[Rfam]
RNA sequence: CUGGGAAGCGCACGGCCGCAAAUCUGACUCGUCGCCCGAUUCGUUGGCGACUUGGGAUUGCGGAAGUGC
Number, nucleotide and partner (000 for none) at each position: 001c000002u000003g000004g000005g000006a000007a000008g000009c000010g069011c068012a067013c066014g000015g000016c063017c062018g061019c060020a059021a058022a000023u000024c056025u055026g000027a000028c000029u000030c000031g051032u050033c049034g048035c047036c046037c000038g000039a000040u000041u000042c000043g000044u000045u000046g036047g035048c034049g033050a032051c031052u000053u000054g000055g025056g024057a000058u021059u020060g019061c018062g017063g016064a000065a000066g013067u012068g011069c010
RNA: S15-Halobacteria ribosomal protein leader